Rfam assigns this 361-nucleotide part of an RNA from Fasciola hepatica to the family "Eukaryotic large subunit ribosomal RNA".

RNA sequence: GGAGAGUACCAUGUGCGCGAGUCAUUGGGCGUUACGAAACCCAAAGGCGCAGAGAAAGUGAAGGCUCGACUUGGCUGGGCUAAGAUGAGAUCCUGUCAUUUCUCAUGCGCGGUUCUACCAGGCUCCGAGCUGCAGGCGCAUCGCUGGCCCGUCCCAUAGCGUAGAGGCAGCCUUGUGCUUGCUCAUCGUUGGAGUGGAGUAUGAGCGUACGUGUUGAGAGCCGGAAGAUGGUAAACAAUGCUUGCCCAAGUUGAAGUCAGAGAAAAUCCUGGUGGGGGACCGCAGCGAUUCUGAACUGCAAAUCGAUGGUCAUACGUGAGUAUAGGGUCGAAAGACUAAUCGAACCAUCUAGUAGCUGGUU
Numbered sequence: 001g002g003a004g005a006g007u008a009c010c011a012u013g014u015g016c017g018c019g020a021g022u023c024a025u026u027g028g029g030c031g032u033u034a035c036g037a038a039a040c041c042c043a044a045a046g047g048c049g050c051a052g053a054g055a056a057a058g059u060g061a062a063g064g065c066u067c068g069a070c071u072u073g074g075c076u077g078g079g080c081u082a083a084g085a086u087g088a089g090a091u092c093c094u095g096u097c098a099u100u101u102c103u104c105a106u107g108c109g110c111g112g113u114u115c116u117a118c119c120a121g122g123c124u125c126c127g128a129g130c131u132g133c134a135g136g137c138g139c140a141u142c143g144c145u146g147g148c149c150c151g152u153c154c155c156a157u158a159g160c161g162u163a164g165a166g167g168c169a170g171c172c173u174u175g176u177g178c179u180u181g182c183u184c185a186u187c188g189u190u191g192g193a194g195u196g197g198a199g200u201a202u203g204a205g206c207g208u209a210c211g212u213g214u215u216g217a218g219a220g221c222c223g224g225a226a227g228a229u230g231g232u233a234a235a236c237a238a239u240g241c242u243u244g245c246c247c248a249a250g251u252u253g254a255a256g257u258c259a260g261a262g263a264a265a266a267u268c269c270u271g272g273u274g275g276g277g278g279a280c281c282g283c284a285g286c287g288a289u290u291c292u293g294a295a296c297u298g299c300a301a302a303u304c305g306a307u308g309g310u311c312a313u314a315c316g317u318g319a320g321u322a323u324a325g326g327g328u329c330g331a332a333a334g335a336c337u338a339a340u341c342g343a344a345c346c347a348u349c350u351a352g353u354a355g356c357u358g359g360u361u
Stems, first nucleotide, its partner, number of pairs: 007216002010213009021048003026043004052059001084145001086143003092136005147200002149197003152193003159186001221358001223356001227349006236325001238323008250280003256273005262267001285310002288307001290306002293304002327337001

A search with the family's covariance model found it, with a score of 1659 bits. The source organism's lineage runs through Eukaryota, Eumetazoa, Lophotrochozoa, Plagiorchiida and Fasciola.